The family of this 100-nucleotide RNA sequence from Marinisporobacter balticus is "PyrR binding site". By type it is a cis-regulatory element.
RNA sequence: CGAGUCUUUAAUUCAGUCCAGAGAGACUGGCAAGAUGAUGAAAUAUGCUUAUGUUUUUUAUAUGCAUAACUUCUUGUCAGUAGACAAGAAGUUUUUUAUU
Numbered sequence: 001c002g003a004g005u006c007u008u009u010a011a012u013u014c015a016g017u018c019c020a021g022a023g024a025g026a027c028u029g030g031c032a033a034g035a036u037g038a039u040g041a042a043a044u045a046u047g048c049u050u051a052u053g054u055u056u057u058u059u060a061u062a063u064g065c066a067u068a069a070c071u072u073c074u075u076g077u078c079a080g081u082a083g084a085c086a087a088g089a090a091g092u093u094u095u096u097u098a099u100u
Stems, first nucleotide, its partner, number of pairs: 004036005013030006040061001041058003045054003066095001068093011